[Rfam]
RNA sequence: CCGUUCUUGUGUUAUUCGCUAGACUUACCUUCUAGUCCAGCGAUUGUCAAACAGAACGUACACUAAUCCCAGGCAACUACUCACUCCACAAUGAUUAGCCGACAAUAGACAAGGCUUCAUCAUUACUAAAUGUUUGCCACAUUU
Numbered sequence: 001c002c003g004u005u006c007u008u009g010u011g012u013u014a015u016u017c018g019c020u021a022g023a024c025u026u027a028c029c030u031u032c033u034a035g036u037c038c039a040g041c042g043a044u045u046g047u048c049a050a051a052c053a054g055a056a057c058g059u060a061c062a063c064u065a066a067u068c069c070c071a072g073g074c075a076a077c078u079a080c081u082c083a084c085u086c087c088a089c090a091a092u093g094a095u096u097a098g099c100c101g102a103c104a105a106u107a108g109a110c111a112a113g114g115c116u117u118c119a120u121c122a123u124u125a126c127u128a129a130a131u132g133u134u135u136g137c138c139a140c141a142u143u144u
Stems, first nucleotide, its partner, number of pairs: 002058006010049002016043005022037001090124005097116004
RNA: Small nucleolar RNA psi18S-1377